[Rfam]
RNA sequence: UUAGAAACAAGGUCGACUAGGAGCGCAACGUCCUGUUGCAACGUCGACACUAGCACGUUCUGUGCG
Numbered sequence: 001u002u003a004g005a006a007a008c009a010a011g012g013u014c015g016a017c018u019a020g021g022a023g024c025g026c027a028a029c030g031u032c033c034u035g036u037u038g039c040a041a042c043g044u045c046g047a048c049a050c051u052a053g054c055a056c057g058u059u060c061u062g063u064g065c066g
Stems, first nucleotide, its partner, number of pairs: 012048006025039005053065004
RNA: Bacillaceae-1 RNA